[Rfam]
This 159-nucleotide RNA from Glycine soja belongs to the Rfam family "MIR4371 microRNA precursor family". The match comes from Rfam's covariance-model search (124 bits). NCBI's taxonomy places the organism under Eukaryota, Embryophyta, rosids, Glycine, Glycine subgen. Soja.
RNA sequence: CCAUUAAGUGAUAAACGUGAUAGACGGAGUGUCACGUCAUCAUGCCCAAUCACUAACACAUCAUUGUCACGUCAUUGAAAGUGAUGACAUGACAACAAGGUGUCCAUGAUAAGGUGUGAUGGCAUGGCACUCCGUCUGUCACGCCAUCACUUAAUGGUU
Numbered sequence: 001c002c003a004u005u006a007a008g009u010g011a012u013a014a015a016c017g018u019g020a021u022a023g024a025c026g027g028a029g030u031g032u033c034a035c036g037u038c039a040u041c042a043u044g045c046c047c048a049a050u051c052a053c054u055a056a057c058a059c060a061u062c063a064u065u066g067u068c069a070c071g072u073c074a075u076u077g078a079a080a081g082u083g084a085u086g087a088c089a090u091g092a093c094a095a096c097a098a099g100g101u102g103u104c105c106a107u108g109a110u111a112a113g114g115u116g117u118g119a120u121g122g123c124a125u126g127g128c129a130c131u132c133c134g135u136c137u138g139u140c141a142c143g144c145c146a147u148c149a150c151u152u153a154a155u156g157g158u159u
Stems, first nucleotide, its partner, number of pairs: 001157012016143019036123011049110004056103004071088005